[Rfam]
A member of the RNA family "mir-4703 microRNA precursor family" from Macaca mulatta, 61 nucleotides long.
Rfam links the family to the GO terms miRNA-mediated post-transcriptional gene silencing and RISC complex.
Pairs were carried over by alignment from the consensus structure, which was predicted with RNAalifold.
The sequence is in the family's curated seed alignment.
RNA sequence: UGGCAAUACAGUACAAAUACAGUGUGUUUGAUUUGCACUGUAGUUGUACUGUAUUGCCACU
Numbered sequence: 001u002g003g004c005a006a007u008a009c010a011g012u013a014c015a016a017a018u019a020c021a022g023u024g025u026g027u028u029u030g031a032u033u034u035g036c037a038c039u040g041u042a043g044u045u046g047u048a049c050u051g052u053a054u055u056g057c058c059a060c061u
Base pairs, nucleotide, nucleotide: 001059002058003057004056005055006054007053008052009051010050011049012048013047014046015045016044018042019041020040021039022038023037024036025035026034